[Rfam]
RNA sequence: GUACUCUGGUUUCUCUUCAAUGCGAAUAAAUCUUUCGCCUUUUACUAAAGAUUUCCGUGGAGAGGAACAAUUUAAAUGAGUCUAUAACAAUUUUUUUUAAGUGCCUAGCAUUUA
Dot-bracket structure: ..((((..(((((((((((........((((((((...........))))))))...))))))))))).........))))........................(.......)
Rfam assigns this 114-nucleotide sequence from Oryctes borbonicus to the family "U5 spliceosomal RNA".
The family's RNA type in Rfam is spliceosomal small nuclear RNA.
The family's consensus secondary structure is taken from published work.
A search with the family's covariance model found it, with a score of 95 bits.